[Rfam]
The family of this 120-nucleotide RNA from Pelotomaculum isophthalicicum is "Molybdenum/Tungsten riboswitch aptamer (Moco RNA motif)".
RNA sequence: AACAGAAAAUUUCUCCGAGCCUUUUUGCCUAAAGGUAUAUCUCAUGGCAAGCAGGCCAUUUGGGUAUGGCGGGAAACGGUCAUGCCUCCCUUAUGGAAAGGAGACAAUAAGCUGCAGGAC
Numbered sequence: 001a002a003c004a005g006a007a008a009a010u011u012u013c014u015c016c017g018a019g020c021c022u023u024u025u026u027g028c029c030u031a032a033a034g035g036u037a038u039a040u041c042u043c044a045u046g047g048c049a050a051g052c053a054g055g056c057c058a059u060u061u062g063g064g065u066a067u068g069g070c071g072g073g074a075a076a077c078g079g080u081c082a083u084g085c086c087u088c089c090c091u092u093a094u095g096g097a098a099a100g101g102a103g104a105c106a107a108u109a110a111g112c113u114g115c116a117g118g119a120c
Stems, first nucleotide, its partner, number of pairs: 003114002011106001012104005019056004024051006034042002062087009072077001088096002
NCBI's taxonomy places the organism under Bacteria, Bacillati, Bacillota, Clostridia, Pelotomaculum isophthalicicum.